Rfam assigns this 166-nucleotide sequence from Vreelandella nanhaiensis to the family "FMN riboswitch aptamer (RFN element)". About the family: The RFN element is a highly conserved domain that is found frequently in the 5'-untranslated regions of prokaryotic mRNAs that encode for flavin mononucleotide (FMN) biosynthesis and transport proteins. Lineage of the source: Bacteria > Pseudomonadati > Gammaproteobacteria > Halomonadaceae > Vreelandella. The family's consensus secondary structure is taken from published work.
[Rfam]
RNA sequence: ACACGUUCUCAGGGCGGGGUGAAAGUCCCCACCGGCGGUGAUGGUGCCUUUCGCUUACGAAAGCGGCCUAAGCCCGCGAGCGCUCAAGGAGUCUACCUCCUCGAGGUCAGCAGAUUCGGUGAGAACCCGAAGCCGACGGUGAUAGUCCGGAUGAAAGAGAACGGCA
Numbered sequence: 001a002c003a004c005g006u007u008c009u010c011a012g013g014g015c016g017g018g019g020u021g022a023a024a025g026u027c028c029c030c031a032c033c034g035g036c037g038g039u040g041a042u043g044g045u046g047c048c049u050u051u052c053g054c055u056u057a058c059g060a061a062a063g064c065g066g067c068c069u070a071a072g073c074c075c076g077c078g079a080g081c082g083c084u085c086a087a088g089g090a091g092u093c094u095a096c097c098u099c100c101u102c103g104a105g106g107u108c109a110g111c112a113g114a115u116u117c118g119g120u121g122a123g124a125a126c127c128c129g130a131a132g133c134c135g136a137c138g139g140u141g142a143u144a145g146u147c148c149g150g151a152u153g154a155a156a157g158a159g160a161a162c163g164g165c166a
Stems, first nucleotide, its partner, number of pairs: 004163007017029003031146002033135002035077004072133002080111002115131005137149003